RNA sequence: ACCGGGUUGAGUGGCGUCAACUUGUCACCGCAGGCUUCUGGCGGGGUAGGGUUCUUUAAGGGAGAUGUCACUAUUGUGAGGGAUCUAUCCACGGCAUGUGGAUGGGGUGCCCGUUUCAAACCAGGAGUGAACAUUGUGGGGACCCAGCAAGGGGCCCAACGAGGUUCUUAAAGAGAGGUGCACCGCCUCAGGCUGGCAACAGAGCAGGGAAAAGCUUCCGCUCUUGGUAGUGGAAGGAUCGCAACCCAGAAUGUCGAUGGUCCCUCCCAAUGGAAUAUGGCGUCGUUCGAAAGGAAUCUGC
Numbered sequence: 001a002c003c004g005g006g007u008u009g010a011g012u013g014g015c016g017u018c019a020a021c022u023u024g025u026c027a028c029c030g031c032a033g034g035c036u037u038c039u040g041g042c043g044g045g046g047u048a049g050g051g052u053u054c055u056u057u058a059a060g061g062g063a064g065a066u067g068u069c070a071c072u073a074u075u076g077u078g079a080g081g082g083a084u085c086u087a088u089c090c091a092c093g094g095c096a097u098g099u100g101g102a103u104g105g106g107g108u109g110c111c112c113g114u115u116u117c118a119a120a121c122c123a124g125g126a127g128u129g130a131a132c133a134u135u136g137u138g139g140g141g142a143c144c145c146a147g148c149a150a151g152g153g154g155c156c157c158a159a160c161g162a163g164g165u166u167c168u169u170a171a172a173g174a175g176a177g178g179u180g181c182a183c184c185g186c187c188u189c190a191g192g193c194u195g196g197c198a199a200c201a202g203a204g205c206a207g208g209g210a211a212a213a214g215c216u217u218c219c220g221c222u223c224u225u226g227g228u229a230g231u232g233g234a235a236g237g238a239u240c241g242c243a244a245c246c247c248a249g250a251a252u253g254u255c256g257a258u259g260g261u262c263c264c265u266c267c268c269a270a271u272g273g274a275a276u277a278u279g280g281c282g283u284c285g286u287u288c289g290a291a292a293g294g295a296a297u298c299u300g301c
Stems, first nucleotide, its partner, number of pairs: 001047003004023007028044003049299009060288003064284002066275001068273002074270003078266004085260005093255005099249001103248004108243003111237002114235005120228009129167004134162004139157003143153003168172001175218005186209003193202003